[Rfam]
RNA sequence: GAAGGAAGGCCCUUCGGAGUCGCCCUGCGUGGGGGAGGCUCCAAACCGCCUCAUGCUGCCCUGGCUGCAAGGCCGGGGUGGUGAGCGAUGAGGAGAAGGCACCGGUUGAGGUGUCAGGU
Numbered sequence: 001g002a003a004g005g006a007a008g009g010c011c012c013u014u015c016g017g018a019g020u021c022g023c024c025c026u027g028c029g030u031g032g033g034g035g036a037g038g039c040u041c042c043a044a045a046c047c048g049c050c051u052c053a054u055g056c057u058g059c060c061c062u063g064g065c066u067g068c069a070a071g072g073c074c075g076g077g078g079u080g081g082u083g084a085g086c087g088a089u090g091a092g093g094a095g096a097a098g099g100c101a102c103c104g105g106u107u108g109a110g111g112u113g114u115c116a117g118g119u
Base pairs, nucleotide, nucleotide: 001015002014003013004012005011016042017041018040019039020038021037023035024034025033026032047118049093050092051091052090053089054088055082056081058079059078060077062075063074064073065072098115099114100113101112102111103110
RNA: Group II catalytic intron D1-D4-2
Organism: Ornithinimicrobium avium